[Rfam]
RNA sequence: GCGUAUUCUCAGGGCGGGGUGAAAUUCCCCACCGGCGGUAUGUGGGGCGUGACCUUACGAGCCCGCGAGCGGCCUUUCCCGAACUGAAGGGUUUCAGCAGAUCUGGUGAGAUGCCAGAGCCGACGGUCAUAGUCCGGAUGAAAGAGAAUGCGA
Numbered sequence: 001g002c003g004u005a006u007u008c009u010c011a012g013g014g015c016g017g018g019g020u021g022a023a024a025u026u027c028c029c030c031a032c033c034g035g036c037g038g039u040a041u042g043u044g045g046g047g048c049g050u051g052a053c054c055u056u057a058c059g060a061g062c063c064c065g066c067g068a069g070c071g072g073c074c075u076u077u078c079c080c081g082a083a084c085u086g087a088a089g090g091g092u093u094u095c096a097g098c099a100g101a102u103c104u105g106g107u108g109a110g111a112u113g114c115c116a117g118a119g120c121c122g123a124c125g126g127u128c129a130u131a132g133u134c135c136g137g138a139u140g141a142a143a144g145a146g147a148a149u150g151c152g153a
Stems, first nucleotide, its partner, number of pairs: 003151008017029003031133002033122002035066004061120002069098002102118005124136003
RNA: FMN riboswitch aptamer (RFN element)